[Rfam]
Rfam assigns this 135-nucleotide RNA from Roseburia zhanii to the family "Clostridiales-1 RNA". A search with the family's covariance model found it, with a score of 83 bits. Lineage of the source: Bacteria > Bacillota > Lachnospirales > Lachnospiraceae > Roseburia. It is annotated as a small RNA.

RNA sequence: UGAUACAAGGGUCAAGAGUUCUGACUUGUUGAUCCGCUCACACAUGAGGAAGUAGCGAUUUCCUUUGGAAAUCGCUACUUCCUCAUGUGUGUAGAAUUGUGGGAGUUGCGUAGCAACGGAGCAAUUCGUGUAUCA
Numbered sequence: 001u002g003a004u005a006c007a008a009g010g011g012u013c014a015a016g017a018g019u020u021c022u023g024a025c026u027u028g029u030u031g032a033u034c035c036g037c038u039c040a041c042a043c044a045u046g047a048g049g050a051a052g053u054a055g056c057g058a059u060u061u062c063c064u065u066u067g068g069a070a071a072u073c074g075c076u077a078c079u080u081c082c083u084c085a086u087g088u089g090u091g092u093a094g095a096a097u098u099g100u101g102g103g104a105g106u107u108g109c110g111u112a113g114c115a116a117c118g119g120a121g122c123a124a125u126u127c128g129u130g131u132a133u134c135a
Base pairs, nucleotide, nucleotide: 001135002134003133004132005131006130007129010034011033012032013031016027017026018025019024039091040090041089042088043087044086045085048082049081050080051079055075056074057073058072059071060070061069062068063067094127095126096125097124098123099122100121105117106116107115108114